The family of this 168-nucleotide RNA sequence from Ruminococcaceae bacterium D16 is "Lysine riboswitch aptamer". Rfam describes the family as follows. Riboswitches are metabolite binding domains within certain messenger RNAs that serve as precision sensors for their corresponding targets. Taxonomically the source falls in Oscillospiraceae (Bacteria, Bacillati, Bacillota, Clostridia). It scores 91 bits against the family's covariance model.
RNA sequence: AAAAGGGAUAGAGGCGCGGUUCUCAUGCGUACUCCGGGACAAGGCCAGGCAGCCGUUCCGGAGGAGAGGGUGAACCGCCGAAGGUCCCCACCGCCUGCCUGGGCGGCGGACCUGGGCCGCGGGAUAAGAUCCUGCGGACUGUCACUUUUGUGGAGCGCUAUCCAGAGG
Numbered sequence: 001a002a003a004a005g006g007g008a009u010a011g012a013g014g015c016g017c018g019g020u021u022c023u024c025a026u027g028c029g030u031a032c033u034c035c036g037g038g039a040c041a042a043g044g045c046c047a048g049g050c051a052g053c054c055g056u057u058c059c060g061g062a063g064g065a066g067a068g069g070g071u072g073a074a075c076c077g078c079c080g081a082a083g084g085u086c087c088c089c090a091c092c093g094c095c096u097g098c099c100u101g102g103g104c105g106g107c108g109g110a111c112c113u114g115g116g117c118c119g120c121g122g123g124a125u126a127a128g129a130u131c132c133u134g135c136g137g138a139c140u141g142u143c144a145c146u147u148u149u150g151u152g153g154a155g156c157g158c159u160a161u162c163c164a165g166a167g168g
Stems, first nucleotide, its partner, number of pairs: 006163006016078007024070001032063008082113006091106005114140002117137008142153004
The base pairs follow the family's consensus structure, which is taken from published work.